[Rfam]
The family of this 98-nucleotide RNA sequence from Phtheirospermum japonicum is "Plastid-rps12 3UTR RNA". It is annotated as a cis-regulatory element. The base pairs follow the family's consensus structure, which was predicted with LocARNA. From the family's description: Plastid rpl20 is a non-coding RNA (ncRNA) recognised in plastids. It was found in the three prime untranslated region (3UTR) of rps12 gene, its 3UTR location sugest a role in transcript maduration.
RNA sequence: GGUUUUCGUUGGUACAAAUUCAAUCACCUAAAUUUAAGAUGAGAACCAAAUUCCCCAUUGGUAACAAAUGGUUAUCCAUUAAGAGGAGGAAGUGUUAU
Numbered sequence: 001g002g003u004u005u006u007c008g009u010u011g012g013u014a015c016a017a018a019u020u021c022a023a024u025c026a027c028c029u030a031a032a033u034u035u036a037a038g039a040u041g042a043g044a045a046c047c048a049a050a051u052u053c054c055c056c057a058u059u060g061g062u063a064a065c066a067a068a069u070g071g072u073u074a075u076c077c078a079u080u081a082a083g084a085g086g087a088g089g090a091a092g093u094g095u096u097a098u
Stems, first nucleotide, its partner, number of pairs: 009023004053088001055086002057079002060076006
Rfam 15.1 lists 1,710 matches to the family in 1,426 species. On this family, see Richter et al., Plant Commun 2023: "Retrograde signaling in plants: A critical review focusing on the GUN pathway and beyond".